Shown here is an 88-nucleotide RNA from Gracilimonas mengyeensis, a member of the family "tRNA".
RNA sequence: GCCUCGGUGGUGGAAUUGGUAGACACGUUGGACUUAAAAUCCAAUGGGUAUUAAAAUGCCCGUGCCGGUUCGAGUCCGGCCCGAGGUA
Number, nucleotide and partner (000 for none) at each position: 001g087002c086003c085004u084005c083006g082007g081008u000009g000010g026011u025012g024013g000014a000015a000016u000017u000018g000019g000020u000021a000022g000023a000024c012025a011026c010027g000028u044029u043030g042031g041032a040033c000034u000035u000036a000037a000038a000039a000040u032041c031042c030043a029044a028045u000046g000047g000048g000049u000050a000051u000052u000053a000054a000055a000056a000057u000058g000059c000060c000061c000062g000063u000064g080065c079066c078067g077068g076069u000070u000071c000072g000073a000074g000075u000076c068077c067078g066079g065080c064081c007082c006083g005084a004085g003086g002087u001088a000
The match comes from Rfam's covariance-model search (60 bits). Transfer RNA (tRNA) molecules are approximately 80 nucleotides in length. The family's RNA type in Rfam is transfer RNA. Taxonomically the source falls in Gracilimonas (Bacteria, Balneolota, Balneolia, Balneolales). The base pairs follow the family's consensus structure, which is taken from published work.